Shown here is a 228-nucleotide RNA sequence from Micractinium conductrix, a member of the family "Protozoan signal recognition particle RNA". On this family, see Rosenblad et al., RNA Biol 2009: "Kinship in the SRP RNA family". It is annotated as a non-coding RNA gene. The family is grouped with related families in Rfam's "SRP clan".
[Rfam]
RNA sequence: AGUCCUGUCAUCCUUCGGGAGGCUAAAAGUUGGGAUUACCAAUUCGUAGGUCGCAAGAUCGAGGCUUCUCGUGGUGUUGUCCUUUGUGAGGUCUUUGUACGAUGGCGGGUCUGCUUGAAAGGAGACCUUAAGUCGAAUAAUGUGGGUUACAACGGAUCAGGCAGGAAACUGAGCAAUCCAUACUCCCGCAGUGACAGGCACAGGGGAUCGCAGCGCCCGAGCCCUCGA
Numbered sequence: 001a002g003u004c005c006u007g008u009c010a011u012c013c014u015u016c017g018g019g020a021g022g023c024u025a026a027a028a029g030u031u032g033g034g035a036u037u038a039c040c041a042a043u044u045c046g047u048a049g050g051u052c053g054c055a056a057g058a059u060c061g062a063g064g065c066u067u068c069u070c071g072u073g074g075u076g077u078u079g080u081c082c083u084u085u086g087u088g089a090g091g092u093c094u095u096u097g098u099a100c101g102a103u104g105g106c107g108g109g110u111c112u113g114c115u116u117g118a119a120a121g122g123a124g125a126c127c128u129u130a131a132g133u134c135g136a137a138u139a140a141u142g143u144g145g146g147u148u149a150c151a152a153c154g155g156a157u158c159a160g161g162c163a164g165g166a167a168a169c170u171g172a173g174c175a176a177u178c179c180a181u182a183c184u185c186c187c188g189c190a191g192u193g194a195c196a197g198g199c200a201c202a203g204g205g206g207a208u209c210g211c212a213g214c215g216c217c218c219g220a221g222c223c224c225u226c227g228a
Base pairs, nucleotide, nucleotide: 012019013018059228060227061226062225063224073217074216075215076214077213078212079211080210081206082205084203085202086201087200088199091195092194093193095191096190097189098188100135101134102133103132107128108127109126110125111124112123114121115120138142144186145185146184148182149181154179155178156177157176162171163170164169